[Rfam]
RNA sequence: UCAUUGUGAAGAAGCGGAAGGUUGCUGGGUUUAUAGACACGCCAGAGUCCGUGACCUAGGUUUUUCCGUGGAGCAUGUCCGCUAAUCGGGCGU
Number, nucleotide and partner (000 for none) at each position: 001u000002c000003a000004u000005u000006g000007u000008g000009a000010a000011g000012a000013a000014g069015c068016g067017g000018a065019a064020g063021g062022u000023u000024g000025c059026u058027g057028g056029g055030u054031u053032u000033a000034u000035a000036g000037a000038c000039a000040c000041g000042c000043c000044a000045g000046a000047g000048u000049c000050c000051g000052u000053g031054a030055c029056c028057u027058a026059g025060g000061u000062u021063u020064u019065u018066c000067c016068g015069u014070g000071g000072a000073g000074c000075a000076u092077g091078u090079c089080c088081g087082c000083u000084a000085a000086u000087c081088g080089g079090g078091c077092g076093u000

S10-Clostridia ribosomal protein leader: a 93-nucleotide sequence from Peptococcus niger. Rfam classes the family as a cis-regulatory leader.